[Rfam]
RNA sequence: UCUGCUCCGGACCCUUAUCAUUCUCUUGUCCAGUGUUAUAUGCAAAUCUACUGGACGGAGAACUGAUAAGGGCCUGUAGACUU
Numbered sequence: 001u002c003u004g005c006u007c008c009g010g011a012c013c014c015u016u017a018u019c020a021u022u023c024u025c026u027u028g029u030c031c032a033g034u035g036u037u038a039u040a041u042g043c044a045a046a047u048c049u050a051c052u053g054g055a056c057g058g059a060g061a062a063c064u065g066a067u068a069a070g071g072g073c074c075u076g077u078a079g080a081c082u083u
Stems, first nucleotide, its partner, number of pairs: 012072009021062006029054002